[Rfam]
The family of this 74-nucleotide RNA sequence is "c-di-GMP-I-GGC riboswitch aptamer". It scores 60 bits against the family's covariance model. A reference for the family is Smith et al. (2012), "Structural and biochemical characterization of linear dinucleotide analogues bound to the c-di-GMP-I aptamer", Biochemistry.
RNA sequence: UGAGAUAAAGCCGACCCUGCUGCAAGGCAGGCACGGAAAGCAACGGGUCUUAACGGAUAGCCGAGCUGCCUUAG
Number, nucleotide and partner (000 for none) at each position: 001u074002g000003a071004g070005a000006u000007a000008a000009a000010g000011c036012c035013g000014a000015c000016c031017c030018u029019g028020c027021u026022g000023c000024a000025a000026g021027g020028c019029a018030g017031g016032c000033a000034c060035g012036g011037a000038a000039a067040g066041c065042a000043a000044c063045g062046g061047g058048u057049c056050u000051u000052a000053a000054c000055g000056g049057a048058u047059a000060g034061c046062c045063g044064a000065g041066c040067u039068g000069c000070c004071u003072u000073a000074g001